Fluoride riboswitch aptamer (crcB RNA motif): a 67-nucleotide RNA from Cecembia lonarensis.

RNA sequence: CAAGAUCUAGGUGAUGGGGUACCACCUUUAACCGCCCUUUUUUGGUGCUGAUGACUCCUGCUUCAAC
Number, nucleotide and partner (000 for none) at each position: 001c000002a000003a000004g000005a000006u000007c000008u000009a000010g026011g025012u024013g023014a000015u000016g058017g057018g056019g055020u054021a000022c000023c013024a012025c011026c010027u000028u000029u000030a000031a000032c000033c000034g048035c047036c000037c045038u000039u000040u000041u000042u000043u000044g000045g037046u000047g035048c034049u000050g000051a000052u000053g000054a020055c019056u018057c017058c016059u000060g000061c000062u000063u000064c000065a000066a000067c000

Lineage of the source: Bacteria > Pseudomonadati > Cytophagales > Cecembia > Cecembia lonarensis.